RNA sequence: AUAUAAGAUAAGAUAUUUAUGUCUUCUACAUCAAAAGAAAUGUAAUCUGAUUAUAUCAUUGUGUUUGUUUAUAUACAAUAUCGAAGAACCUGGGAUAAUUACCCAGGUUCUUUUUUGA
Dot-bracket structure: .................................(.(((.(((.................))..)...))).)..........(((((((((((.........))))))))))).....
Numbered sequence: 001a002u003a004u005a006a007g008a009u010a011a012g013a014u015a016u017u018u019a020u021g022u023c024u025u026c027u028a029c030a031u032c033a034a035a036a037g038a039a040a041u042g043u044a045a046u047c048u049g050a051u052u053a054u055a056u057c058a059u060u061g062u063g064u065u066u067g068u069u070u071a072u073a074u075a076c077a078a079u080a081u082c083g084a085a086g087a088a089c090c091u092g093g094g095a096u097a098a099u100u101a102c103c104c105a106g107g108u109u110c111u112u113u114u115u116u117g118a
Stems, first nucleotide, its partner, number of pairs: 034072001036070003040064001041061002083113011
The record is a 118-nucleotide RNA sequence from Paenibacillus xylanivorans, which matches "Bacillus sRNA ncr1015" in Rfam. Rfam classes the family as a small RNA. A reference for the family is Irnov et al. (2010), "Identification of regulatory RNAs in Bacillus subtilis", Nucleic Acids Res.